[Rfam]
RNA sequence: GGCUGGUCCCUGUGAACUGAUUGGUCUUUACAACUAAUUGAUCACAACCAGUUACAGAUUUAUUUGUUCCUUCUCCUUUCCCACCACUUCACUUGACUAACCUUAA
Numbered sequence: 001g002g003c004u005g006g007u008c009c010c011u012g013u014g015a016a017c018u019g020a021u022u023g024g025u026c027u028u029u030a031c032a033a034c035u036a037a038u039u040g041a042u043c044a045c046a047a048c049c050a051g052u053u054a055c056a057g058a059u060u061u062a063u064u065u066g067u068u069c070c071u072u073c074u075c076c077u078u079u080c081c082c083a084c085c086a087c088u089u090c091a092c093u094u095g096a097c098u099a100a101c102c103u104u105a106a
Stems, first nucleotide, its partner, number of pairs: 001102002004099005014094002019089001022083003032068003036064002
Shown here is a 106-nucleotide RNA sequence from Rhinopithecus roxellana, a member of the family "Y RNA". The family's consensus secondary structure is taken from published work. Rfam classes the family as a non-coding RNA gene. Taxonomically the source falls in Rhinopithecus (Eukaryota, Dipnotetrapodomorpha, Haplorrhini, Catarrhini).